[Rfam]
RNA: TPP riboswitch aptamer (THI element)
Organism: Muribacter muris
RNA sequence: UGGCAUUAGUCGGGGUGCCUUAUGGCUGAGAUCAUACCCGUGAACCUGAAACAGUUAGUACUGGCGUAGGAAACUAAUUAUGUCCACAU
Numbered sequence: 001u002g003g004c005a006u007u008a009g010u011c012g013g014g015g016u017g018c019c020u021u022a023u024g025g026c027u028g029a030g031a032u033c034a035u036a037c038c039c040g041u042g043a044a045c046c047u048g049a050a051a052c053a054g055u056u057a058g059u060a061c062u063g064g065c066g067u068a069g070g071a072a073a074c075u076a077a078u079u080a081u082g083u084c085c086a087c088a089u
Stems, first nucleotide, its partner, number of pairs: 006077005011040004016034001017026003045070004052063003